[Rfam]
RNA sequence: UCUAGAACUCAAGAUAUGGGCUGAACACUGAACAGUGUCUGGGCUGCAGGACAGAUUCGGACUUCUUCAUUGUUGCUAUAAUUUAGACUUGAAAAUGACCCUUUUAAAUCUUGGACUCCACAUGAAAGUUAUAGGCCUAUGUCUUAUCGAAUCUGUC
Numbered sequence: 001u002c003u004a005g006a007a008c009u010c011a012a013g014a015u016a017u018g019g020g021c022u023g024a025a026c027a028c029u030g031a032a033c034a035g036u037g038u039c040u041g042g043g044c045u046g047c048a049g050g051a052c053a054g055a056u057u058c059g060g061a062c063u064u065c066u067u068c069a070u071u072g073u074u075g076c077u078a079u080a081a082u083u084u085a086g087a088c089u090u091g092a093a094a095a096u097g098a099c100c101c102u103u104u105u106a107a108a109u110c111u112u113g114g115a116c117u118c119c120a121c122a123u124g125a126a127a128g129u130u131a132u133a134g135g136c137c138u139a140u141g142u143c144u145u146a147u148c149g150a151a152u153c154u155g156u157c
Base pairs, nucleotide, nucleotide: 003155004154005153006152009146011145012144013143014142015141016140017139018138019137020136021134022133023132025130027129028128029127035123036122037121041119042118043117045115048112049111050110051109054105055104059100060099063097072088073087074086
A member of the RNA family "MIR2912 microRNA precursor family" from Populus tomentosa, 157 nucleotides long. The source organism's lineage runs through Eukaryota, eudicotyledons, rosids, Saliceae and Populus. The family has 2 seed sequences and 15,051 matches in Rfam 15.1.